The family of this 58-nucleotide RNA from Enterobacteriaceae bacterium RIT714 is "ClpQY promoter". On this family, see Lien et al., Open Microbiol J 2009: "Regulation of clpQ(+)Y(+) (hslV(+)U(+)) gene expression in Escherichia coli". It is annotated as a cis-regulatory element.
[Rfam]
RNA sequence: CCCUGAGCACAGGCUCAGGGCACCUGUUCCGAUUUUGUAACCAGGGGGUCUGCUCGUG
Numbered sequence: 001c002c003c004u005g006a007g008c009a010c011a012g013g014c015u016c017a018g019g020g021c022a023c024c025u026g027u028u029c030c031g032a033u034u035u036u037g038u039a040a041c042c043a044g045g046g047g048g049u050c051u052g053c054u055c056g057u058g
Base pairs, nucleotide, nucleotide: 001020002019003018004017005016006015007014008013
Dot-bracket structure: ((((((((....))))))))......................................